[Rfam]
Shown here is a 68-nucleotide RNA sequence from Nematostella vectensis, a member of the family "mir-2041 microRNA precursor family". The family's consensus secondary structure was predicted with RNAalifold.
RNA sequence: AACCCAGGGGUAUUUUCCUCUAACGUGUUACUCCCGAUCGAAACGCUAGAGGAAAAUACCCCUGGGUU
Numbered sequence: 001a002a003c004c005c006a007g008g009g010g011u012a013u014u015u016u017c018c019u020c021u022a023a024c025g026u027g028u029u030a031c032u033c034c035c036g037a038u039c040g041a042a043a044c045g046c047u048a049g050a051g052g053a054a055a056a057u058a059c060c061c062c063u064g065g066g067u068u
Stems, first nucleotide, its partner, number of pairs: 001068022024045003028041002032037001
The match comes from Rfam's covariance-model search (76 bits).